The record is a 97-nucleotide RNA from Equus asinus, which matches "mir-9058 microRNA precursor family" in Rfam. The match comes from Rfam's covariance-model search (83 bits). The base pairs follow the family's consensus structure, which was predicted with RNAalifold. NCBI's taxonomy places the organism under Eukaryota, Chordata, Vertebrata, Boreoeutheria, Equus. Rfam 15.1 lists 2,090 matches to the family in 3 species.
RNA sequence: AUGGUUGCCGGGUGGGUGCUCUCUACUAGUGCUGUGCAGAGGCUAUCACUGAAGCUGCUGUGAGACUGUAGAGUUUCCCUCUGGGCCACGGAACCGG
Numbered sequence: 001a002u003g004g005u006u007g008c009c010g011g012g013u014g015g016g017u018g019c020u021c022u023c024u025a026c027u028a029g030u031g032c033u034g035u036g037c038a039g040a041g042g043c044u045a046u047c048a049c050u051g052a053a054g055c056u057g058c059u060g061u062g063a064g065a066c067u068g069u070a071g072a073g074u075u076u077c078c079c080u081c082u083g084g085g086c087c088a089c090g091g092a093a094c095c096g097g
Stems, first nucleotide, its partner, number of pairs: 002096005007086003010082002014080003018076001021073006028067002032064002036061004041056004046051001